[Rfam]
RNA sequence: ACAAUCUGAAAAUUACCUUCAGCACAUGUAUUGCAGUGGGUGAGAUAAUUGUGCCUACACAAAGGCGGUUCAUUAAGCUUAUUGCCAGCUCUGUAGUUGUGCAAUGAAACCCAUGUGCCUACAUCA
Numbered sequence: 001a002c003a004a005u006c007u008g009a010a011a012a013u014u015a016c017c018u019u020c021a022g023c024a025c026a027u028g029u030a031u032u033g034c035a036g037u038g039g040g041u042g043a044g045a046u047a048a049u050u051g052u053g054c055c056u057a058c059a060c061a062a063a064g065g066c067g068g069u070u071c072a073u074u075a076a077g078c079u080u081a082u083u084g085c086c087a088g089c090u091c092u093g094u095a096g097u098u099g100u101g102c103a104a105u106g107a108a109a110c111c112c113a114u115g116u117g118c119c120u121a122c123a124u125c126a
Stems, first nucleotide, its partner, number of pairs: 006051001008049001010046001013043004022034003067119001069117001071115003079107005087098003
This 126-nucleotide sequence from Pangasianodon hypophthalmus belongs to the Rfam family "Small nucleolar RNA ACA64". Gene Ontology terms of the family: nucleolus and RNA processing. By type it is an H/ACA-box small nucleolar RNA. The match comes from Rfam's covariance-model search (70 bits). The literature on the family includes a 2006 paper in RNA by Schattner et al., "A computational screen for mammalian pseudouridylation guide H/ACA RNAs". Lineage of the source: Eukaryota > Eumetazoa > Osteoglossocephalai > Otomorpha > Pangasianodon.